[Rfam]
RNA sequence: GGGCAGUGACGAUUUCAUCGUGAAAGGUCUCGUUCGUCGUAACUGGCUCUUUAAAGGCCUUGACGACUAUCCUGAUAUAUCACCACCCAUAUUCCGAGUCC
Dot-bracket structure: ((((............................................(......).........................................))))
Numbered sequence: 001g002g003g004c005a006g007u008g009a010c011g012a013u014u015u016c017a018u019c020g021u022g023a024a025a026g027g028u029c030u031c032g033u034u035c036g037u038c039g040u041a042a043c044u045g046g047c048u049c050u051u052u053a054a055a056g057g058c059c060u061u062g063a064c065g066a067c068u069a070u071c072c073u074g075a076u077a078u079a080u081c082a083c084c085a086c087c088c089a090u091a092u093u094c095c096g097a098g099u100c101c
Stems, first nucleotide, its partner, number of pairs: 001101004049056001
This 101-nucleotide RNA sequence from Populus tomentosa belongs to the Rfam family "Small nucleolar RNA Z43". NCBI's taxonomy places the organism under Eukaryota, Viridiplantae, Streptophyta, fabids, Populus. A reference for the family is Chen et al. (2003), "The high diversity of snoRNAs in plants: identification and comparative study of 120 snoRNA genes from Oryza sativa", Nucleic Acids Res. The family's RNA type in Rfam is C/D-box small nucleolar RNA. Rfam 15.1 lists 859 matches to the family in 240 species.